[Rfam]
RNA sequence: UUGUCCUGGCCUAUGCUCUCUCUGCUCCCCUGUAAGAGGGAAGUCUGGCAGGACACACAGCAUCCUCCCGCUCAGUGUAGGAGGGCUUUCCGGAGUAUAGGCUGGCUCUUAAAGGCACAUAUA
Number, nucleotide and partner (000 for none) at each position: 001u000002u055003g054004u053005c052006c051007u050008g049009g000010c048011c047012u000013a000014u000015g000016c000017u000018c000019u000020c000021u000022c000023u000024g044025c043026u042027c000028c040029c039030c038031u037032g000033u000034a000035a000036g000037a031038g030039g029040g028041a000042a026043g025044u024045c000046u000047g011048g010049c008050a007051g006052g005053a004054c003055a002056c000057a000058c000059a000060g000061c000062a000063u000064c000065c000066u000067c000068c000069c000070g000071c000072u123073c000074a000075g116076u115077g000078u113079a000080g000081g110082a109083g108084g107085g106086c105087u104088u000089u101090c000091c100092g000093g098094a000095g000096u000097a000098u093099a000100g091101g089102c000103u000104g087105g086106c085107u084108c083109u082110u081111a000112a000113a078114g000115g076116c075117a000118c000119a000120u000121a000122u000123a072
This 123-nucleotide RNA sequence from Pipistrellus kuhlii belongs to the Rfam family "Small Cajal body specific RNA 11". The base pairs follow the family's consensus structure, which was predicted with RNAalifold. Rfam 15.1 lists 853 matches to the family in 557 species. Taxonomically the source falls in Pipistrellus (Eukaryota, Vertebrata, Gnathostomata, Sarcopterygii). scaRNAs are a specific class of small nuclear RNAs which localise to the Cajal bodies and guide the modification of RNA polymerase II transcribed spliceosomal RNAs U1, U2, U4, U5 and U12. ACA57 belongs to the H/ACA box class of guide RNAs as it has the predicted hairpin-hinge-hairpin-tail structure, conserved H/ACA-box motifs and is found associated with GAR1. ACA57 is predicted to guide the pseudouridylation of the U5 spliceosomal RNA at position U43. The family's RNA type in Rfam is small Cajal body RNA.